[Rfam]
RNA sequence: UAUAAAGUUUUCUAGGGUUCCGCAGCUUAUGGCUGGUCUGGUCCAAGAGAAAACAUACAGUUAUCUGUGUACACGGAGGGAGAAAAGCCCGGGAAAA
Numbered sequence: 001u002a003u004a005a006a007g008u009u010u011u012c013u014a015g016g017g018u019u020c021c022g023c024a025g026c027u028u029a030u031g032g033c034u035g036g037u038c039u040g041g042u043c044c045a046a047g048a049g050a051a052a053a054c055a056u057a058c059a060g061u062u063a064u065c066u067g068u069g070u071a072c073a074c075g076g077a078g079g080g081a082g083a084a085a086a087g088c089c090c091g092g093g094a095a096a097a
Base pairs, nucleotide, nucleotide: 007054008053009052010051011050012049015044016043020041021040022038023035024034025033026032027031055070056069057068058067059066060065072092078090079089080088